Shown here is a 276-nucleotide part of an RNA from Rothia mucilaginosa, a member of the family "Archaeal large subunit ribosomal RNA". Pairs were carried over by alignment from the consensus structure, which is taken from published work. It scores 1460 bits against the family's covariance model.
RNA sequence: GGAAAUUUGAGAAAGGCUGUCCUUAGUACGAGAGGACCGGGACGGACGAACCUCUGGUAUGUCAGUUGUACCGCCAGGUGCAUGGCUGAUUGGCUACGUUCGGGAGGGAUAACCGCUGAAAGCAUCUAAGCGGGAAGCCUGUUUCGAGAUGAGAUUUCCUGGCACUUUUGGUGUGUGAGGCUCCUUAUAGAUGAUGAGGUUGAUAGGCCGGGUAUGGAAGCGGGGACUGAAGACUCGUGGAGUUGACUGGUACUAAUAGGCCGAAGGCUUACUUUU
Numbered sequence: 001g002g003a004a005a006u007u008u009g010a011g012a013a014a015g016g017c018u019g020u021c022c023u024u025a026g027u028a029c030g031a032g033a034g035g036a037c038c039g040g041g042a043c044g045g046a047c048g049a050a051c052c053u054c055u056g057g058u059a060u061g062u063c064a065g066u067u068g069u070a071c072c073g074c075c076a077g078g079u080g081c082a083u084g085g086c087u088g089a090u091u092g093g094c095u096a097c098g099u100u101c102g103g104g105a106g107g108g109a110u111a112a113c114c115g116c117u118g119a120a121a122g123c124a125u126c127u128a129a130g131c132g133g134g135a136a137g138c139c140u141g142u143u144u145c146g147a148g149a150u151g152a153g154a155u156u157u158c159c160u161g162g163c164a165c166u167u168u169u170g171g172u173g174u175g176u177g178a179g180g181c182u183c184c185u186u187a188u189a190g191a192u193g194a195u196g197a198g199g200u201u202g203a204u205a206g207g208c209c210g211g212g213u214a215u216g217g218a219a220g221c222g223g224g225g226a227c228u229g230a231a232g233a234c235u236c237g238u239g240g241a242g243u244u245g246a247c248u249g250g251u252a253c254u255a256a257u258a259g260g261c262c263g264a265a266g267g268c269u270u271a272c273u274u275u276u
Base pairs, nucleotide, nucleotide: 001159002158003157004156005155006154007153008152011145012144013143014142017045018044019043020042021041022040023039047102048101049100050099051098055096056095057094062089063088064087065086066085067082068081069080070079071078106140107139108138113133114132115131116130117129179262180261181260182259183199184198185197186196187195204255205254206253207251208250209249210248211247214243220238221237222236223235224234